[Rfam]
RNA sequence: CUCUUAUCAAGAGUGGUGGAGGGACUGGCCCGAUGAAACCCGGCAACCGGCAUAUAUUAUGCGUCUGGUGCCAAAUCCUGCAGGGAAACCUGAGAGAUGAGAG
Numbered sequence: 001c002u003c004u005u006a007u008c009a010a011g012a013g014u015g016g017u018g019g020a021g022g023g024a025c026u027g028g029c030c031c032g033a034u035g036a037a038a039c040c041c042g043g044c045a046a047c048c049g050g051c052a053u054a055u056a057u058u059a060u061g062c063g064u065c066u067g068g069u070g071c072c073a074a075a076u077c078c079u080g081c082a083g084g085g086a087a088a089c090c091u092g093a094g095a096g097a098u099g100a101g102a103g
Stems, first nucleotide, its partner, number of pairs: 001103008013041001015040003021031003025080001027078002042072004047068002050062003076095001081092004
The family of this 103-nucleotide RNA sequence from Thermoanaerobacterium thermosaccharolyticum is "SAM riboswitch aptamer (S box leader)". Rfam 15.1 lists 9,625 matches to the family in 4,158 species. Taxonomically the source falls in Thermoanaerobacterium thermosaccharolyticum (Bacteria, Bacillota, Thermoanaerobacterales, Thermoanaerobacteraceae). It scores 90 bits against the family's covariance model.